[Rfam]
RNA sequence: CCCUGGUGUCUAGAGAUCCCUCAGAUCACUUAGACUGAAGCAGAAAAUCUCUAGCAGUGGCGCCCGAACAGGGACUUGAAGUGAAAGUGAAACCAGGG
Numbered sequence: 001c002c003c004u005g006g007u008g009u010c011u012a013g014a015g016a017u018c019c020c021u022c023a024g025a026u027c028a029c030u031u032a033g034a035c036u037g038a039a040g041c042a043g044a045a046a047a048u049c050u051c052u053a054g055c056a057g058u059g060g061c062g063c064c065c066g067a068a069c070a071g072g073g074a075c076u077u078g079a080a081g082u083g084a085a086a087g088u089g090a091a092a093c094c095a096g097g098g
Base pairs, nucleotide, nucleotide: 001098002097003096004095005094006093007092010054011053012052013051014050015049016048017047018043020040024036026034056088058086061083062082063073064072065071075081076080
Annotation:
Shown here is a 98-nucleotide sequence from Lentivirus humimdef1, a member of the family "HIV primer binding site (PBS)". It is annotated as a cis-regulatory element.